RNA: L31-Firmicutes ribosomal protein leader
RNA sequence: CUCUGCAUCCCCGGGAUGCAGGGCAGAAGGAG
Numbered sequence: 001c002u003c004u005g006c007a008u009c010c011c012c013g014g015g016a017u018g019c020a021g022g023g024c025a026g027a028a029g030g031a032g
Stems, first nucleotide, its partner, number of pairs: 001023010